[Rfam]
RNA sequence: GUCUUCUCAUUGAGUGCCUUUCUGUCAACUGGUGUCAGAUUAUGGAUUCACAUGAGAAGAAGAGAGUUCAGAGAACUAGCAUUACCUUACCUUCUGGUUUUACAGAGGUAUGUUUGGCUCUUGUGUGAGACAUUC
Numbered sequence: 001g002u003c004u005u006c007u008c009a010u011u012g013a014g015u016g017c018c019u020u021u022c023u024g025u026c027a028a029c030u031g032g033u034g035u036c037a038g039a040u041u042a043u044g045g046a047u048u049c050a051c052a053u054g055a056g057a058a059g060a061a062g063a064g065a066g067u068u069c070a071g072a073g074a075a076c077u078a079g080c081a082u083u084a085c086c087u088u089a090c091c092u093u094c095u096g097g098u099u100u101u102a103c104a105g106a107g108g109u110a111u112g113u114u115u116g117g118c119u120c121u122u123g124u125g126u127g128a129g130a131c132a133u134u135c
Stems, first nucleotide, its partner, number of pairs: 003059006014051002017045002022038003026034001068128003072124001091108006
RNA: Small nucleolar RNA SNORA75
Organism: Nannospalax galili